The family of this 260-nucleotide RNA from Schizosaccharomyces pombe is "Nuclear RNase P". Taxonomically the source falls in Schizosaccharomyces (Eukaryota, Ascomycota, Taphrinomycotina, Schizosaccharomycetaceae). Ribonuclease P (RNase P) is a ubiquitous endoribonuclease, found in archaea, bacteria and eukarya as well as chloroplasts and mitochondria. Its best characterised activity is the generation of mature 5'-ends of tRNAs by cleaving the 5'-leader elements of precursor-tRNAs. The family's RNA type in Rfam is ribozyme. The literature on the family includes a 2005 paper in RNA by Marquez et al., "Structural implications of novel diversity in eucaryal RNase P RNA".
[Rfam]
RNA sequence: UACGGGCGAACGCCGCACUUCCUCAAAUUCAAACGCGUUGAAAAGCGCACAGCUCGUUGAGGGGGUAAGGUCGGAGAAACAUCUUCGUUGCGUGCUCGUGAGGAGCGAAGAACGAACGUUCUGCCGAAUGUACCAGAAAUUCAAUCAGUAUGGCCUCGUUUGUCGUACCUGAUUUUGAAACGCAUUCGAGAAGAUUUAUUUUAGUGCAAUGUGUGGCACCUGUUUGUCAGGUAACUCGAUUCCGACUAAUCUUGUCUGUA
Numbered sequence: 001u002a003c004g005g006g007c008g009a010a011c012g013c014c015g016c017a018c019u020u021c022c023u024c025a026a027a028u029u030c031a032a033a034c035g036c037g038u039u040g041a042a043a044a045g046c047g048c049a050c051a052g053c054u055c056g057u058u059g060a061g062g063g064g065g066u067a068a069g070g071u072c073g074g075a076g077a078a079a080c081a082u083c084u085u086c087g088u089u090g091c092g093u094g095c096u097c098g099u100g101a102g103g104a105g106c107g108a109a110g111a112a113c114g115a116a117c118g119u120u121c122u123g124c125c126g127a128a129u130g131u132a133c134c135a136g137a138a139a140u141u142c143a144a145u146c147a148g149u150a151u152g153g154c155c156u157c158g159u160u161u162g163u164c165g166u167a168c169c170u171g172a173u174u175u176u177g178a179a180a181c182g183c184a185u186u187c188g189a190g191a192a193g194a195u196u197u198a199u200u201u202u203a204g205u206g207c208a209a210u211g212u213g214u215g216g217c218a219c220c221u222g223u224u225u226g227u228c229a230g231g232u233a234a235c236u237c238g239a240u241u242c243c244g245a246c247u248a249a250u251c252u253u254g255u256c257u258g259u260a
Stems, first nucleotide, its partner, number of pairs: 001260004007254003012217007020063005035048005072244005083193004093107005109122005125188007144173003218232005
Dot-bracket structure: ((((..(((..(((((((.(((((..........(((((....)))))..........)))))........[[[[[......((((......(((((.....))))).(((((....)))))..(((((((............(((........................)))........))))))).)))).................)))))))(((((.....))))).......]]]]].......)))..))))